[Rfam]
RNA sequence: UGGUAGAUGCACCCUGAUUGACGUUUCCCAGCUCAGUGAUUUGGGCUGGUUUUUUUU
Numbered sequence: 001u002g003g004u005a006g007a008u009g010c011a012c013c014c015u016g017a018u019u020g021a022c023g024u025u026u027c028c029c030a031g032c033u034c035a036g037u038g039a040u041u042u043g044g045g046c047u048g049g050u051u052u053u054u055u056u057u
Base pairs, nucleotide, nucleotide: 002013003012004011028049029048030047031046032045033044034043035042
RNA: Nitrogen stress-induced RNA 1
Organism: Coleofasciculus sp. LEGE 07092